[Rfam]
RNA sequence: CGGGGUGUAGCGCAGCUUGGUAGCGCGCUUGAAUGGGGUUCAAGAGGUCGUGGGUUCAAAUCCCGCCACCCCGA
Numbered sequence: 001c002g003g004g005g006u007g008u009a010g011c012g013c014a015g016c017u018u019g020g021u022a023g024c025g026c027g028c029u030u031g032a033a034u035g036g037g038g039u040u041c042a043a044g045a046g047g048u049c050g051u052g053g054g055u056u057c058a059a060a061u062c063c064c065g066c067c068a069c070c071c072c073g074a
Stems, first nucleotide, its partner, number of pairs: 001073007010026004028044005050066005